[Rfam]
RNA sequence: CGUUACUGCAUUUUGCAGUGCGUUUCCUCCCUAGACUAAAGGCCGCACCCAAUUGGGUUGCGGCCCUUUUUUUGUUCCGA
Numbered sequence: 001c002g003u004u005a006c007u008g009c010a011u012u013u014u015g016c017a018g019u020g021c022g023u024u025u026c027c028u029c030c031c032u033a034g035a036c037u038a039a040a041g042g043c044c045g046c047a048c049c050c051a052a053u054u055g056g057g058u059u060g061c062g063g064c065c066c067u068u069u070u071u072u073u074g075u076u077c078c079g080a
Base pairs, nucleotide, nucleotide: 008021009020010019011018041065042064043063044062045061046060047059049057
This 80-nucleotide sequence from Azospirillum sp. B510 belongs to the Rfam family "Makes More Granules Regulator RNA (mmgR)". SuhB later renamed mmgR (makes more granules regulator) was a putative non-coding RNA found multiple times in the Agrobacterium tumefaciens genome and related alpha-proteobacteria. Other non-coding RNAs uncovered in the same analysis include: speF, ybhL, metA, and serC.Several studies inSinorhizobium meliloti showed that suhB element is indeed a non-coding RNA:firstly it was detected on Northern blot and called Sm8RNA, secondly in an RNAseq study referred to as SmelC689.The mutant phenotype's (strain lacking the small RNA) cytoplasm contains higher content of polyhydroxybutyrate (PBH)storage granules than wild type strain. The sRNA is required to limit the PBH intracellular accumulation when the nitrogen-fixing Sinorhizobium meliloti is under condition of surplus carbon in relation to nitrogen. NCBI's taxonomy places the organism under Bacteria, Pseudomonadota, Alphaproteobacteria, Rhodospirillales, Azospirillum. It scores 50 bits against the family's covariance model. Its family is annotated with response to nitrogen compound, DNA-templated transcription, termination and protein binding in the Gene Ontology. Its Rfam clan is "suhB sRNA clan".